This 76-nucleotide sequence from Ameiurus melas belongs to the Rfam family "mir-196 microRNA precursor family".
Rfam links the family to the GO terms RISC complex and gene silencing by miRNA.
RNA sequence: UGCGUGGUUUAGGUAGUUUCAUGUUGUUGGGAUUCAACUUCCUGCCUCGGCAACAAGAAACUGCCUUGACUACGUC
Number, nucleotide and partner (000 for none) at each position: 001u000002g000003c074004g073005u072006g071007g070008u069009u068010u000011a066012g065013g064014u063015a062016g061017u060018u059019u058020c000021a000022u055023g054024u053025u052026g051027u050028u049029g048030g047031g046032a000033u000034u000035c000036a000037a000038c000039u000040u000041c000042c000043u000044g000045c000046c031047u030048c029049g028050g027051c026052a025053a024054c023055a022056a000057g000058a019059a018060a017061c016062u015063g014064c013065c012066u011067u000068g009069a008070c007071u006072a005073c004074g003075u000076c000